[Rfam]
RNA sequence: ACCAUCCUUUUCUUGGGGUUGCACUACUGUCCGAUGAGCGCUUAGCGAGGGCAGUACUGCUAACGCCUAUGCAACACGCCCGCACCGGCUAAAGCUUGGCUUUAUCACGGUGCAAGAAAAA
Numbered sequence: 001a002c003c004a005u006c007c008u009u010u011u012c013u014u015g016g017g018g019u020u021g022c023a024c025u026a027c028u029g030u031c032c033g034a035u036g037a038g039c040g041c042u043u044a045g046c047g048a049g050g051g052c053a054g055u056a057c058u059g060c061u062a063a064c065g066c067c068u069a070u071g072c073a074a075c076a077c078g079c080c081c082g083c084a085c086c087g088g089c090u091a092a093a094g095c096u097u098g099g100c101u102u103u104a105u106c107a108c109g110g111u112g113c114a115a116g117a118a119a120a121a
Base pairs, nucleotide, nucleotide: 006018007017008016009015021060022059023058026055027054028053029052030051031050032049038046039045082113083112084111085110086109087108090104091103092102093101094100095099

Notes:
Rfam assigns this 121-nucleotide RNA sequence from Odocoileus virginianus to the family "U4atac minor spliceosomal RNA". From the family's description: U4atac is an essential component of the minor U12-type spliceosome complex which is required for removal of the rarer class of eukaryotic introns (AT-AC, U12-type). Taxonomically the source falls in Odocoileus virginianus (Eukaryota, Chordata, Mammalia, Ruminantia). The family is grouped with related families in Rfam's "U4 clan". Its family is annotated with U4atac snRNP, pre-mRNA 5'-splice site binding and mRNA 5'-splice site recognition in the Gene Ontology.